[Rfam]
RNA: narK RNA
Organism: Ectopseudomonas mendocina
RNA sequence: GGCUCGGCUCUUGCUUGGUCCCUGGUACCAGGUAGCCAACGGCGGCCACCUCCCUCACGACAAAGACGUCGC
Numbered sequence: 001g002g003c004u005c006g007g008c009u010c011u012u013g014c015u016u017g018g019u020c021c022c023u024g025g026u027a028c029c030a031g032g033u034a035g036c037c038a039a040c041g042g043c044g045g046c047c048a049c050c051u052c053c054c055u056c057a058c059g060a061c062a063a064a065g066a067c068g069u070c071g072c
Stems, first nucleotide, its partner, number of pairs: 031050003035046003